[Rfam]
The family of this 249-nucleotide sequence from Jeotgalibacillus sp. S-D1 is "BsrG". About the family: bsrE, bsrG and bsrH pair through intermolecular interactions with antisense sRNAs.
RNA sequence: CAAUAGAAUCGUUUCUCAAGGGUGGUCAGCACAUCCCGCUAAAAAAGGGGGGUGAUGCUGUUUGACAACUUUCGAAGGUAUAAUGAUGAUGAUUGCUUUUUCGAGUCUAGUCGUGUCGAUUUUGUCAUUUAACAAAAAAGAAUAAUCCACCUUUGAGUUUAGCGGCUCGGGUGGAUUAUUUUUGUCUGCCAGGCUGUCCCCUUUGAGGGAACGUUCUAUUGCCGGCGUUUGGUGUGUCGAGCACCAAAC
Numbered sequence: 001c002a003a004u005a006g007a008a009u010c011g012u013u014u015c016u017c018a019a020g021g022g023u024g025g026u027c028a029g030c031a032c033a034u035c036c037c038g039c040u041a042a043a044a045a046a047g048g049g050g051g052g053u054g055a056u057g058c059u060g061u062u063u064g065a066c067a068a069c070u071u072u073c074g075a076a077g078g079u080a081u082a083a084u085g086a087u088g089a090u091g092a093u094u095g096c097u098u099u100u101u102c103g104a105g106u107c108u109a110g111u112c113g114u115g116u117c118g119a120u121u122u123u124g125u126c127a128u129u130u131a132a133c134a135a136a137a138a139a140g141a142a143u144a145a146u147c148c149a150c151c152u153u154u155g156a157g158u159u160u161a162g163c164g165g166c167u168c169g170g171g172u173g174g175a176u177u178a179u180u181u182u183u184g185u186c187u188g189c190c191a192g193g194c195u196g197u198c199c200c201c202u203u204u205g206a207g208g209g210a211a212c213g214u215u216c217u218a219u220u221g222c223c224g225g226c227g228u229u230u231g232g233u234g235u236g237u238c239g240a241g242c243a244c245c246a247a248a249c
Base pairs, nucleotide, nucleotide: 001221002220003219004218005217007215008214009213013196015157016156017155018154019153020152021151022150024147025146026145032054033053035052036051037050039048064126065125066124067123068122102118103117104116197210198209199208200207227249228248229247230246231245232244233243234242235241

The family's RNA type in Rfam is small RNA. Rfam links the family to the GO terms toxin activity and autolysis.